RNA: Z30 small nucleolar RNA
RNA sequence: UUGCACUGAUGAUAGUAGAUGUGACUGACCUGGCACUGCCGGCCUCCGGGUCGGCUCUGGCCAGGAUAUGACUUCAGUUAAUCUUCUCGCUGAGCCG
Numbered sequence: 001u002u003g004c005a006c007u008g009a010u011g012a013u014a015g016u017a018g019a020u021g022u023g024a025c026u027g028a029c030c031u032g033g034c035a036c037u038g039c040c041g042g043c044c045u046c047c048g049g050g051u052c053g054g055c056u057c058u059g060g061c062c063a064g065g066a067u068a069u070g071a072c073u074u075c076a077g078u079u080a081a082u083c084u085u086c087u088c089g090c091u092g093a094g095c096c097g
Stems, first nucleotide, its partner, number of pairs: 003095002038055004